[Rfam]
RNA: mir-19 microRNA precursor family
Organism: Bos taurus
RNA sequence: ACUUACAGUUAGUUUUGCUGGUUUGCAUUUCAGCGUGUGGAUAUAUGGCUGUGCAAAUCCAUGCAAAACUGAUUGUG
Numbered sequence: 001a002c003u004u005a006c007a008g009u010u011a012g013u014u015u016u017g018c019u020g021g022u023u024u025g026c027a028u029u030u031c032a033g034c035g036u037g038u039g040g041a042u043a044u045a046u047g048g049c050u051g052u053g054c055a056a057a058u059c060c061a062u063g064c065a066a067a068a069c070u071g072a073u074u075g076u077g
Stems, first nucleotide, its partner, number of pairs: 004077015020060002022057007032050003
Dot-bracket structure: ...(((((((((((((((.(((((((((...(((.............)))))))))).))..)))))))))))))))